Rfam assigns this 144-nucleotide RNA from Pararge aegeria to the family "Wolbachia sRNA 46". The pairing is the family consensus, mapped onto this sequence. Rfam classes the family as a small RNA. The family has 3 seed sequences and 237 matches in Rfam 15.1. A search with the family's covariance model found it, with a score of 78 bits. On this family, see Mayoral et al., Proc Natl Acad Sci U S A 2014: "Wolbachia small noncoding RNAs and their role in cross-kingdom communications".

[Rfam]
RNA sequence: GGUACCCCCUUCUUUUGUCAUCCCAGUGCCCCGACACUGGGAUCCAGUAAAAUUGAUUGUAAACAGCACACUAUACAACAUUUUCAAUCAAAAAACUGGAUUCCAGUGUCAACUACUUGCAUGACACCAUUUGCUAUGCAAUUU
Numbered sequence: 001g002g003u004a005c006c007c008c009c010u011u012c013u014u015u016u017g018u019c020a021u022c023c024c025a026g027u028g029c030c031c032c033g034a035c036a037c038u039g040g041g042a043u044c045c046a047g048u049a050a051a052a053u054u055g056a057u058u059g060u061a062a063a064c065a066g067c068a069c070a071c072u073a074u075a076c077a078a079c080a081u082u083u084u085c086a087a088u089c090a091a092a093a094a095a096c097u098g099g100a101u102u103c104c105a106g107u108g109u110c111a112a113c114u115a116c117u118u119g120c121a122u123g124a125c126a127c128c129a130u131u132u133g134c135u136a137u138g139c140a141a142u143u144u
Stems, first nucleotide, its partner, number of pairs: 012138001014136001016126006023119001025117004033110015